[Rfam]
RNA sequence: UCAUAACACGAACCGGUUCUAAAAGGUCCUGCCCAACGGCUACUGACAGGUGCUGUCAGAGCAGGGACCCUUUAGAACAGGUUCGUGUUACCAA
Number, nucleotide and partner (000 for none) at each position: 001u000002c000003a000004u090005a089006a088007c087008a086009c085010g084011a083012a082013c081014c080015g000016g078017u077018u076019c075020u074021a073022a072023a071024a000025g069026g068027u067028c000029c065030u064031g000032c000033c059034c000035a000036a056037c055038g000039g000040c000041u000042a000043c049044u048045g000046a000047c000048a044049g043050g000051u000052g000053c000054u000055g037056u036057c000058a000059g033060a000061g000062c000063a000064g030065g029066g000067a027068c026069c025070c000071u023072u022073u021074a020075g019076a018077a017078c016079a000080g014081g013082u012083u011084c010085g009086u008087g007088u006089u005090a004091c000092c000093a000094a000

A member of the RNA family "MIR5387 microRNA precursor family" from Sorghum bicolor, 94 nucleotides long. It scores 72 bits against the family's covariance model. Taxonomically the source falls in Sorghum (Eukaryota, commelinids, Panicoideae, Andropogonodae). Rfam 15.1 lists 1,029 matches to the family in 9 species.